RNA: Satellite tobacco necrosis virus cap-independent translation element
RNA sequence: AGGACGCUGAAAGAUGCGUAGCUACCCUCCUGGUGCACUUCCUGGUGCAAAGCAGAACCAAAGGGUACGGUGGUACGGCGGACAGUAGUCCU
Numbered sequence: 001a002g003g004a005c006g007c008u009g010a011a012a013g014a015u016g017c018g019u020a021g022c023u024a025c026c027c028u029c030c031u032g033g034u035g036c037a038c039u040u041c042c043u044g045g046u047g048c049a050a051a052g053c054a055g056a057a058c059c060a061a062a063g064g065g066u067a068c069g070g071u072g073g074u075a076c077g078g079c080g081g082a083c084a085g086u087a088g089u090c091c092u
Stems, first nucleotide, its partner, number of pairs: 001092005006086004015080002017077004021071002023067006031060004035048005